[Rfam]
RNA: S4-Clostridia ribosomal protein leader
RNA sequence: GAAAGGGCGCGCAUACCGACACGCCUGGGAGACCAACCUCUCCCCAGUUAGA
Numbered sequence: 001g002a003a004a005g006g007g008c009g010c011g012c013a014u015a016c017c018g019a020c021a022c023g024c025c026u027g028g029g030a031g032a033c034c035a036a037c038c039u040c041u042c043c044c045c046a047g048u049u050a051g052a
Stems, first nucleotide, its partner, number of pairs: 005026005011020001027044006